[Rfam]
RNA: mir-7371 microRNA precursor family
RNA sequence: UUUGUACAAGAUGCUCUGUUUUGUAAAUAUCAUCAAAUAGAGCAUACUUGUGCAAAGG
Numbered sequence: 001u002u003u004g005u006a007c008a009a010g011a012u013g014c015u016c017u018g019u020u021u022u023g024u025a026a027a028u029a030u031c032a033u034c035a036a037a038u039a040g041a042g043c044a045u046a047c048u049u050g051u052g053c054a055a056a057g058g
Stems, first nucleotide, its partner, number of pairs: 001056007009048002011045007019037002022035002